[Rfam]
RNA sequence: AUGUUUCAUCCUUGGAGACCAGACCCUAUCAAUAUUGCCUCUGCUUCCACUAAGACUUAACACAGUAGUGCAAUAUUGCUUAUAGGGUCUUGACUCCGAGGCGUG
Number, nucleotide and partner (000 for none) at each position: 001a000002u000003g000004u000005u000006u000007c000008a000009u000010c000011c000012u000013u000014g000015g000016a000017g000018a000019c000020c000021a090022g089023a088024c087025c086026c085027u084028a083029u082030c078031a077032a076033u075034a074035u073036u072037g071038c070039c000040u000041c068042u067043g066044c065045u064046u000047c000048c000049a000050c000051u000052a000053a000054g000055a000056c000057u000058u000059a000060a000061c000062a000063c000064a045065g044066u043067a042068g041069u000070g038071c037072a036073a035074u034075a033076u032077u031078g030079c000080u000081u000082a029083u028084a027085g026086g025087g024088u023089c022090u021091u000092g000093a000094c000095u000096c000097c000098g000099a000100g000101g000102c000103g000104u000105g000
RNA: mir-454 microRNA precursor family
Organism: Cynoglossus semilaevis